[Rfam]
RNA sequence: CUCCGCUGAUGACCUCUGUUUUGUGCCACGUGUCUGGGCCACUGACCUAAACUGAUGGAAGUGAGGAACUGAGGGG
Numbered sequence: 001c002u003c004c005g006c007u008g009a010u011g012a013c014c015u016c017u018g019u020u021u022u023g024u025g026c027c028a029c030g031u032g033u034c035u036g037g038g039c040c041a042c043u044g045a046c047c048u049a050a051a052c053u054g055a056u057g058g059a060a061g062u063g064a065g066g067a068a069c070u071g072a073g074g075g076g
Base pairs, nucleotide, nucleotide: 001076002075003074004073
Background:
Small nucleolar RNA SNORD66: a 76-nucleotide RNA sequence from Chanos chanos. From the family's description: snoRNA HBII-142 is part of the C/D family of snoRNAs. It is the human orthologue of the mouse MBII-142 snoRNA and is predicted to guide 2'O-ribose methylation of small 18S rRNA at residue C1272. The family's RNA type in Rfam is C/D-box small nucleolar RNA. A reference for the family is Huttenhofer et al. (2001), "RNomics: an experimental approach that identifies 201 candidates for novel, small, non-messenger RNAs in mouse", EMBO J. The family's consensus secondary structure was predicted with RNAalifold. NCBI's taxonomy places the organism under Eukaryota, Vertebrata, Gnathostomata, Clupeocephala, Chanos. Rfam links the family to the GO terms RNA processing and nucleolus.